[Rfam]
Rfam assigns this 91-nucleotide RNA from Penicillium atrosanguineum to the family "A. fumigatus snoRNA Afu_263". The organism belongs to Penicillium, within Eukaryota. The match comes from Rfam's covariance-model search (66 bits). Gene Ontology terms of the family: nucleolus and RNA processing.
RNA sequence: CUAGAUGAUGAACAAACCUACCCAAGCAUAGUUCACCUGAAAUCUUCGGAUUGCUGAACGACAACCUUUAUCCAUCUCUUUUUAUCUGAUA
Numbered sequence: 001c002u003a004g005a006u007g008a009u010g011a012a013c014a015a016a017c018c019u020a021c022c023c024a025a026g027c028a029u030a031g032u033u034c035a036c037c038u039g040a041a042a043u044c045u046u047c048g049g050a051u052u053g054c055u056g057a058a059c060g061a062c063a064a065c066c067u068u069u070a071u072c073c074a075u076c077u078c079u080u081u082u083u084a085u086c087u088g089a090u091a
Stems, first nucleotide, its partner, number of pairs: 004017001006014002031059005041052004